[Rfam]
Shown here is a 69-nucleotide RNA from Medicago truncatula, a member of the family "MIR2629 microRNA precursor family". Pairs were carried over by alignment from the consensus structure, which was predicted with RNAalifold. Its family is annotated with RISC complex and miRNA-mediated post-transcriptional gene silencing in the Gene Ontology.

RNA sequence: UGCCGAAUUUUUCCUCGGUAGUUAACUGCAGCCGGAUCCAUAAUUCGGCAGUAAACUGCCGAGGGAUAU
Numbered sequence: 001u002g003c004c005g006a007a008u009u010u011u012u013c014c015u016c017g018g019u020a021g022u023u024a025a026c027u028g029c030a031g032c033c034g035g036a037u038c039c040a041u042a043a044u045u046c047g048g049c050a051g052u053a054a055a056c057u058g059c060c061g062a063g064g065g066a067u068a069u
Stems, first nucleotide, its partner, number of pairs: 012065002015062009025052005